[Rfam]
RNA sequence: UCAUCAGUAUGGGUCAAUCUCUGAUCUGCAACUGAACAUGAUGAAAACGGGCGAUGAUCCUUUGGUGAUUAUAACGCACGGCGAGGAGGGAACGCAAUACCCACCUGUCUGCCCGAAUCUGAG
Numbered sequence: 001u002c003a004u005c006a007g008u009a010u011g012g013g014u015c016a017a018u019c020u021c022u023g024a025u026c027u028g029c030a031a032c033u034g035a036a037c038a039u040g041a042u043g044a045a046a047a048c049g050g051g052c053g054a055u056g057a058u059c060c061u062u063u064g065g066u067g068a069u070u071a072u073a074a075c076g077c078a079c080g081g082c083g084a085g086g087a088g089g090g091a092a093c094g095c096a097a098u099a100c101c102c103a104c105c106u107g108u109c110u111g112c113c114c115g116a117a118u119c120u121g122a123g
Base pairs, nucleotide, nucleotide: 018035019034020031022030023029060076062074063073064072066071081112082111084106085105086104088102089101
This 123-nucleotide sequence from Caenorhabditis brenneri belongs to the Rfam family "U8 small nucleolar RNA". On this family, see Peculis et al., Gene 2001: "The U8 snoRNA gene family: identification and characterization of distinct, functional U8 genes in Xenopus". Its family is annotated with nucleolus and RNA processing in the Gene Ontology. NCBI's taxonomy places the organism under Eukaryota, Protostomia, Chromadorea, Rhabditida, Caenorhabditis. The base pairs follow the family's consensus structure, which is taken from published work.